Record summary:
This 159-nucleotide RNA from Rubrobacter taiwanensis belongs to the Rfam family "glmS glucosamine-6-phosphate activated ribozyme aptamer". Gene Ontology terms of the family: regulation of gene expression and catalytic activity. It scores 95 bits against the family's covariance model. It is annotated as a riboswitch.
RNA sequence: CAGACAGAGCAAGCGCCAGGGCUCCCGGCAGUCCGGGAGUUGACGAGGUGGGUGUUGAUCGAGUUUUUCGGCGGGUGCGCCCCGGCCCACGGGCGGUCGUCAGGGCGGUCACAAAACGCGGCGGCGACGUCGCGGACAAAAGGCCGUCCGGGCCCGUAG
Numbered sequence: 001c002a003g004a005c006a007g008a009g010c011a012a013g014c015g016c017c018a019g020g021g022c023u024c025c026c027g028g029c030a031g032u033c034c035g036g037g038a039g040u041u042g043a044c045g046a047g048g049u050g051g052g053u054g055u056u057g058a059u060c061g062a063g064u065u066u067u068u069c070g071g072c073g074g075g076u077g078c079g080c081c082c083c084g085g086c087c088c089a090c091g092g093g094c095g096g097u098c099g100u101c102a103g104g105g106c107g108g109u110c111a112c113a114a115a116a117c118g119c120g121g122c123g124g125c126g127a128c129g130u131c132g133c134g135g136a137c138a139a140a141a142g143g144c145c146g147u148c149c150g151g152g153c154c155c156g157u158a159g
Stems, first nucleotide, its partner, number of pairs: 020041008050082005059071004083099005103149007117134007

Lineage of the source: Bacteria > Actinomycetota > Rubrobacteria > Rubrobacteraceae > Rubrobacter.